[Rfam]
RNA sequence: GUGUCGAUGAGAUAUGUUUGAUAUUCUUGGUUGUUUUUUAGUAUCACCCAGGAAUCAAACAUAUUACCCAUCGACCG
Number, nucleotide and partner (000 for none) at each position: 001g000002u000003g000004u000005c073006g072007a071008u070009g069010a000011g065012a064013u063014a062015u061016g060017u059018u058019u057020g056021a055022u054023a000024u052025u051026c000027u000028u000029g049030g048031u000032u046033g045034u000035u000036u000037u000038u000039u000040a000041g000042u000043a000044u000045c033046a032047c000048c030049c029050a000051g025052g024053a000054a022055u021056c020057a019058a018059a017060c016061a015062u014063a013064u012065u011066a000067c000068c000069c009070a008071u007072c006073g005074a000075c000076c000077g000
RNA: mir-190 microRNA precursor family